[Rfam]
RNA sequence: CCCAGGGCUUACGACCUGGGCUAUUUUCUACCGCCCUUUCGAGGCU
Numbered sequence: 001c002c003c004a005g006g007g008c009u010u011a012c013g014a015c016c017u018g019g020g021c022u023a024u025u026u027u028c029u030a031c032c033g034c035c036c037u038u039u040c041g042a043g044g045c046u
Stems, first nucleotide, its partner, number of pairs: 001020006008013001033045003037041001
Source information: A member of the RNA family "Acido-Lenti-1 RNA" from Fimbriiglobus ruber, 46 nucleotides long. It scores 38 bits against the family's covariance model. Lineage of the source: Bacteria > Pseudomonadati > Planctomycetia > Gemmatales > Fimbriiglobus. The family's RNA type in Rfam is small RNA. The base pairs follow the family's consensus structure, which is taken from published work.